[Rfam]
RNA: mir-544 microRNA precursor family
Nucleotides: 097
Stems, first nucleotide, its partner, number of pairs: 003090003009084003014080005020074001021072002025068005031062003
Number, partner (000 for none) and nucleotide at each position: 001000a002000c003090c004089a005088c006000u007000u008000g009084g010083g011082g012000a013000u014080c015079u016078u017077g018076u019000a020074a021072a022071a023000a024000u025068g026067c027066a028065g029064a030000u031062u032061c033060u034000g035000a036000a037000u038000c039000u040000g041000c042000a043000a044000g045000u046000c047000u048000g049000g050000g051000c052000g053000g054000g055000g056000c057000c058000u059000g060033a061032g062031a063000u064029u065028c066027u067026g068025c069000g070000c071022u072021u073000c074020u075000a076018a077017c078016a079015a080014g081000u082011u083010c084009c085000c086000a087000g088005g089004u090003g091000a092000g093000g094000c095000u096000c097000a